This 81-nucleotide RNA sequence from Desulfohalobium retbaense belongs to the Rfam family "Group II catalytic intron D1-D4-1". The organism belongs to Desulfohalobium retbaense, within Bacteria. It is one of the family's seed sequences. For this family Rfam cites "The ins and outs of group II introns" (Bonen and Vogel, Trends Genet, 2001). The pairing is the family consensus, mapped onto this sequence. From the family's description: Group II introns are found in rRNA, tRNA and mRNA of organelles in fungi, plants and protists, and also in mRNA in bacteria.
[Rfam]
RNA sequence: CUACCGGCGUCGCGAGGCGUCGGGACGGGCGGGCAGAAGUCAGCCGAGGGCAUAGUAGGUCCCCCGACCGGACUGAAGGCC
Dot-bracket structure: (..((((((((....))))))))...)............((....)).(((......(((((.......)))))....)))